Lysine riboswitch aptamer: a 175-nucleotide RNA from Kosmotoga olearia. It scores 96 bits against the family's covariance model. Rfam 15.1 lists 3,224 matches to the family in 1,923 species.

[Rfam]
RNA sequence: UUACCCCACAGAGGUGCACCGGAGAUGAGUAAACCGUCCAUCAUGGGGAUCGGGACGGAUUGAAAGGCGAAGGUGCCGAAGGAUACAGGGUACCCCAAGCUCUGUACUCCUGGGUAUACGGGGAAUACCCGUAUAACUGUCACGGGGCUGUGUCUCGUGGAGCGCUGGUGGGCAU
Numbered sequence: 001u002u003a004c005c006c007c008a009c010a011g012a013g014g015u016g017c018a019c020c021g022g023a024g025a026u027g028a029g030u031a032a033a034c035c036g037u038c039c040a041u042c043a044u045g046g047g048g049a050u051c052g053g054g055a056c057g058g059a060u061u062g063a064a065a066g067g068c069g070a071a072g073g074u075g076c077c078g079a080a081g082g083a084u085a086c087a088g089g090g091u092a093c094c095c096c097a098a099g100c101u102c103u104g105u106a107c108u109c110c111u112g113g114g115u116a117u118a119c120g121g122g123g124a125a126u127a128c129c130c131g132u133a134u135a136a137c138u139g140u141c142a143c144g145g146g147g148c149u150g151u152g153u154c155u156c157g158u159g160g161a162g163c164g165c166u167g168g169u170g171g172g173c174a175u
Base pairs, nucleotide, nucleotide: 006170009167010166011165016076017075018074019073020072024068032061033060034058035057036056037055038054039053080111081110082109083108084106085105086104087103088102089101090100091099112138113137115135116134117133118132119131120130121129122128140160141159142158143157144156145155146154